[Rfam]
RNA sequence: UCUCAGGCUGUGGCCCUCUAGAGGGAAGCGAUUUCUGUGAUCUGAAAGAAAAGAAAAUGGUUCCCUUUAGAGGGUUACUGUUUGAGA
Numbered sequence: 001u002c003u004c005a006g007g008c009u010g011u012g013g014c015c016c017u018c019u020a021g022a023g024g025g026a027a028g029c030g031a032u033u034u035c036u037g038u039g040a041u042c043u044g045a046a047a048g049a050a051a052a053g054a055a056a057a058u059g060g061u062u063c064c065c066u067u068u069a070g071a072g073g074g075u076u077a078c079u080g081u082u083u084g085a086g087a
Stems, first nucleotide, its partner, number of pairs: 001087005007081002010078005016072003020068008029059002032056004038052001
The record is an 87-nucleotide sequence from Mandrillus leucophaeus, which matches "mir-515 microRNA precursor family" in Rfam.
The literature on the family includes a 2005 paper in Nat Genet by Bentwich et al., "Identification of hundreds of conserved and nonconserved human microRNAs".
The family is grouped with related families in Rfam's "mir-290 clan".
The organism belongs to Mandrillus, within Eukaryota.